Shown here is a 125-nucleotide RNA from Hafnia alvei, a member of the family "Enterobacteria greA leader". For this family Rfam cites "Premature terminator analysis sheds light on a hidden world of bacterial transcriptional attenuation" (Naville and Gautheret, Genome Biol, 2010). Lineage of the source: Bacteria > Pseudomonadati > Gammaproteobacteria > Hafniaceae > Hafnia alvei. Pairs were carried over by alignment from the consensus structure, which is taken from published work. The family's RNA type in Rfam is cis-regulatory leader.
[Rfam]
RNA sequence: GUCAUACUACGGUGCAUCUAGGGUUAAAGUAAACGAUGAUACUUGCUGAACUCUACGUUAAAAUAGCCGUCAAAAUGCAAAAUCGAUUUUAACUUGGGUUUUUUGACCCCGAGUUAAUAUUUUUU
Numbered sequence: 001g002u003c004a005u006a007c008u009a010c011g012g013u014g015c016a017u018c019u020a021g022g023g024u025u026a027a028a029g030u031a032a033a034c035g036a037u038g039a040u041a042c043u044u045g046c047u048g049a050a051c052u053c054u055a056c057g058u059u060a061a062a063a064u065a066g067c068c069g070u071c072a073a074a075a076u077g078c079a080a081a082a083u084c085g086a087u088u089u090u091a092a093c094u095u096g097g098g099u100u101u102u103u104u105g106a107c108c109c110c111g112a113g114u115u116a117a118u119a120u121u122u123u124u125u
Stems, first nucleotide, its partner, number of pairs: 001040005010035002014030002057071001059069001089117010